[Rfam]
Rfam assigns this 163-nucleotide RNA sequence from Asellus aquaticus to the family "U1 spliceosomal RNA".
RNA sequence: AUACUUACCUGGCACAGGGAAUACCACGAUCACUAAGGUGGUUCCCCCAAGGCGAGGCUCACCAUUGCACCUCGGUGGCGCUGACCCUUGCGAUGACCCCAAAUGUGGGUUACUCGGGUGUGUAAUUUCUGUUAGCUGGGGACUGCGUUCGCGCUUUCCCCUU
Numbered sequence: 001a002u003a004c005u006u007a008c009c010u011g012g013c014a015c016a017g018g019g020a021a022u023a024c025c026a027c028g029a030u031c032a033c034u035a036a037g038g039u040g041g042u043u044c045c046c047c048c049a050a051g052g053c054g055a056g057g058c059u060c061a062c063c064a065u066u067g068c069a070c071c072u073c074g075g076u077g078g079c080g081c082u083g084a085c086c087c088u089u090g091c092g093a094u095g096a097c098c099c100c101a102a103a104u105g106u107g108g109g110u111u112a113c114u115c116g117g118g119u120g121u122g123u124a125a126u127u128u129c130u131g132u133u134a135g136c137u138g139g140g141g142a143c144u145g146c147g148u149u150c151g152c153g154c155u156u157u158c159c160c161c162u163u
Stems, first nucleotide, its partner, number of pairs: 012121004017047003021043001023042005049089004054085001056082003060078001061076003091116003094112003098108002138161005145154003

The organism belongs to Asellus, within Eukaryota.
Rfam's curators put it in the seed alignment.
Rfam's curators write: U1 is a small nuclear RNA (snRNA) component of the spliceosome (involved in pre-mRNA splicing). Its 5' end forms complementary base pairs with the 5' splice junction, thus defining the 5' donor site of an intron.